[Rfam]
RNA sequence: UCGAAGCUUAUAUCGUUCGAGACUCGGUCUUAGUUAGUGUAUAGGAGGUUUUGAAAAUAGAAUAUAAAUAUAAGGAGCAAUAAACUCUUUCUUCUUCUAUCAAGAGGGAUUAUUGCUCCUUU
Numbered sequence: 001u002c003g004a005a006g007c008u009u010a011u012a013u014c015g016u017u018c019g020a021g022a023c024u025c026g027g028u029c030u031u032a033g034u035u036a037g038u039g040u041a042u043a044g045g046a047g048g049u050u051u052u053g054a055a056a057a058u059a060g061a062a063u064a065u066a067a068a069u070a071u072a073a074g075g076a077g078c079a080a081u082a083a084a085c086u087c088u089u090u091c092u093u094c095u096u097c098u099a100u101c102a103a104g105a106g107g108g109a110u111u112a113u114u115g116c117u118c119c120u121u122u
Base pairs, nucleotide, nucleotide: 072121073120074119075118076117077116078115079114080113081112082111083110085108086107089106090105091104092103093102